This 77-nucleotide RNA from Crocodylus porosus belongs to the Rfam family "Mammalian CPEB3 ribozyme". The match comes from Rfam's covariance-model search (38 bits). A reference for the family is Salehi-Ashtiani et al. (2006), "A genomewide search for ribozymes reveals an HDV-like sequence in the human CPEB3 gene", Science. Rfam describes the family as follows. The mammalian CPEB3 ribozyme is a self cleaving RNA located in the second intron of the CPEB3 gene which belongs to a family of genes regulating messenger RNA polyadenylation. This ribozyme is highly conserved and found only in mammals. The CPEB3 ribozyme is structurally and biochemically related to the human hepatitis delta virus (HDV) ribozyme and the HDV ribozyme is proposed to have arisen from the human transcriptome. The family's consensus secondary structure is taken from published work.
RNA sequence: GGUGGCAAGUUUGAGGCCAUAUCGGAAGCGCCCACAGUGCAACCCCAUCAGAUUCCAAUGAAUCUGCAAAUUCUGGU
Numbered sequence: 001g002g003u004g005g006c007a008a009g010u011u012u013g014a015g016g017c018c019a020u021a022u023c024g025g026a027a028g029c030g031c032c033c034a035c036a037g038u039g040c041a042a043c044c045c046c047a048u049c050a051g052a053u054u055c056c057a058a059u060g061a062a063u064c065u066g067c068a069a070a071u072u073c074u075g076g077u
Stems, first nucleotide, its partner, number of pairs: 013046001015044002021077007028040003049066007
Dot-bracket structure: ............[.[[....((((((((((.......)))..]].]..(((((((....)))))))....)))))))